RNA sequence: CAGGUGCUGGACCUGCAGGCACCACAGCUGCCAUGCUUCACCUGUGACGUAAGGGCACAGAGGAAGUGGCUAUUUCAACUCCAUGCUCAGAAUAGUAGGCACUAAGAAUGGUUUGUAGCCUGACAUUC
Numbered sequence: 001c002a003g004g005u006g007c008u009g010g011a012c013c014u015g016c017a018g019g020c021a022c023c024a025c026a027g028c029u030g031c032c033a034u035g036c037u038u039c040a041c042c043u044g045u046g047a048c049g050u051a052a053g054g055g056c057a058c059a060g061a062g063g064a065a066g067u068g069g070c071u072a073u074u075u076c077a078a079c080u081c082c083a084u085g086c087u088c089a090g091a092a093u094a095g096u097a098g099g100c101a102c103u104a105a106g107a108a109u110g111g112u113u114u115g116u117a118g119c120c121u122g123a124c125a126u127u128c
Stems, first nucleotide, its partner, number of pairs: 004056002007053002010050001024045004068120003076111001078109001079106002084101004089096001
Shown here is a 128-nucleotide RNA sequence from Cnephaeus nilssonii, a member of the family "Small nucleolar RNA SNORA43". It is annotated as an H/ACA-box small nucleolar RNA. It scores 98 bits against the family's covariance model. Gene Ontology terms of the family: nucleolus and RNA processing. Its Rfam clan is "SNORA17 clan". Taxonomically the source falls in Cnephaeus (Eukaryota, Opisthokonta, Chordata, Theria). Rfam's curators write: ACA43 is a member of the H/ACA class of snoRNA that guide the sites of modification of uridines to pseudouridines.